[Rfam]
RNA sequence: CUCUCUGGUGAUGAUCAAACAAAUACUUUCGUUCUACUUAGUUGCUAAAUGCAUUGAGGAAAGAUAUUUGGAGACCUGAACUGAAGCAAGAGAU
Numbered sequence: 001c002u003c004u005c006u007g008g009u010g011a012u013g014a015u016c017a018a019a020c021a022a023a024u025a026c027u028u029u030c031g032u033u034c035u036a037c038u039u040a041g042u043u044g045c046u047a048a049a050u051g052c053a054u055u056g057a058g059g060a061a062a063g064a065u066a067u068u069u070g071g072a073g074a075c076c077u078g079a080a081c082u083g084a085a086g087c088a089a090g091a092g093a094u
Stems, first nucleotide, its partner, number of pairs: 003092004
The record is a 94-nucleotide RNA from Physcomitrium patens, which matches "Small nucleolar RNA Z159/U59" in Rfam. Gene Ontology terms of the family: nucleolus and RNA processing. It scores 54 bits against the family's covariance model. The family's consensus secondary structure was predicted with PFOLD. Rfam classes the family as a C/D-box small nucleolar RNA. Its Rfam clan is "SNORD59 clan".